Overview:
A member of the RNA family "Bacterial large subunit ribosomal RNA" from Malacoplasma iowae, 433 nucleotides of a longer RNA. A search with the family's covariance model found it, with a score of 2754 bits. The organism belongs to Malacoplasma iowae, within Bacteria. On this family, see Yusupov et al., Science 2001: "Crystal structure of the ribosome at 5.5 A resolution".
[Rfam]
RNA sequence: CUCGCCGAAAUAAUUUUAGGAUUAGCGUUGGAUCAUGAUUGUAUGAAGGUAAAGCACUGAAUGUAUGAUGGCGUCACCUCGAUGUACUGAAUACAAUUAAACUCUGAAUGUCAUGCAAUUUAAUCCAGCAGUCAGACUGUGGGGGAUAAGCUUCAUAGUCGCGAGGGAAAAAGCCCAGAUCGUUAGCUAAGGUCCCCAAAUUAUGCUAAGUGGAAAAGGAUGUUAAGAUACUUAAACAGCAAGGAUGUUGGCUUAGAAGCAGCCAUCGUUUAAAGAGUGCGUAACAGCUCACUUGUCGAGUGUCUUUGCGCCAAAGAUUCAACGGGGCUAAGCAUAAUACCGAAGCUACGGGCUACAUUGUAGCGGUAGGCGAGUGUUCUAUAUGGGAUGAAGGUAGAUCGUGAGAACUACUGGACUUUAUAGAAGUAAGAAU
Numbered sequence: 001c002u003c004g005c006c007g008a009a010a011u012a013a014u015u016u017u018a019g020g021a022u023u024a025g026c027g028u029u030g031g032a033u034c035a036u037g038a039u040u041g042u043a044u045g046a047a048g049g050u051a052a053a054g055c056a057c058u059g060a061a062u063g064u065a066u067g068a069u070g071g072c073g074u075c076a077c078c079u080c081g082a083u084g085u086a087c088u089g090a091a092u093a094c095a096a097u098u099a100a101a102c103u104c105u106g107a108a109u110g111u112c113a114u115g116c117a118a119u120u121u122a123a124u125c126c127a128g129c130a131g132u133c134a135g136a137c138u139g140u141g142g143g144g145g146a147u148a149a150g151c152u153u154c155a156u157a158g159u160c161g162c163g164a165g166g167g168a169a170a171a172a173g174c175c176c177a178g179a180u181c182g183u184u185a186g187c188u189a190a191g192g193u194c195c196c197c198a199a200a201u202u203a204u205g206c207u208a209a210g211u212g213g214a215a216a217a218g219g220a221u222g223u224u225a226a227g228a229u230a231c232u233u234a235a236a237c238a239g240c241a242a243g244g245a246u247g248u249u250g251g252c253u254u255a256g257a258a259g260c261a262g263c264c265a266u267c268g269u270u271u272a273a274a275g276a277g278u279g280c281g282u283a284a285c286a287g288c289u290c291a292c293u294u295g296u297c298g299a300g301u302g303u304c305u306u307u308g309c310g311c312c313a314a315a316g317a318u319u320c321a322a323c324g325g326g327g328c329u330a331a332g333c334a335u336a337a338u339a340c341c342g343a344a345g346c347u348a349c350g351g352g353c354u355a356c357a358u359u360g361u362a363g364c365g366g367u368a369g370g371c372g373a374g375u376g377u378u379c380u381a382u383a384u385g386g387g388a389u390g391a392a393g394g395u396a397g398a399u400c401g402u403g404a405g406a407a408c409u410a411c412u413g414g415a416c417u418u419u420a421u422a423g424a425a426g427u428a429a430g431a432a433u
Base pairs, nucleotide, nucleotide: 001374002373003372004371005370006369011024012023013022014021015020026131027129028128029127030126031125032124033123036122038119039118040117041116042115043114044113045112046111052105053103054102058099059098060097062095063094064093065092070087071085072084073083074082075081135160136159137158138157139156140155141154142153143152144151165176166175167174180351181350182349183348185347186346187345191341192340193339200338201337202336203335204334205333206332218312219311222309223308225306226305227304228303229302230301231300239296240295241294242293243292245269246268247267250264251263252262270274275290279288280287352364353363354362355361356360375428377425378424379423380422381421382420383419385417386416393412394411395410396409397408399406400405